[Rfam]
RNA sequence: UUACUCUGGUUUCUCUUCACAACGCAUAAAUCUUUCGCCUUUUACUAAAGAUUUCCGUGGAGAGGAGCAACAUAAUGAGUCUAAAGACUAUUUUUCAAACCCCACGUUGUGGGGG
Numbered sequence: 001u002u003a004c005u006c007u008g009g010u011u012u013c014u015c016u017u018c019a020c021a022a023c024g025c026a027u028a029a030a031u032c033u034u035u036c037g038c039c040u041u042u043u044a045c046u047a048a049a050g051a052u053u054u055c056c057g058u059g060g061a062g063a064g065g066a067g068c069a070a071c072a073u074a075a076u077g078a079g080u081c082u083a084a085a086g087a088c089u090a091u092u093u094u095u096c097a098a099a100c101c102c103c104a105c106g107u108u109g110u111g112g113g114g115g
Stems, first nucleotide, its partner, number of pairs: 003080004009068011028054008101115003105111001
Rfam assigns this 115-nucleotide sequence from Elysia chlorotica to the family "U5 spliceosomal RNA".
U5 RNA is a component of both types of known spliceosome.
Pairs were carried over by alignment from the consensus structure, which is taken from published work.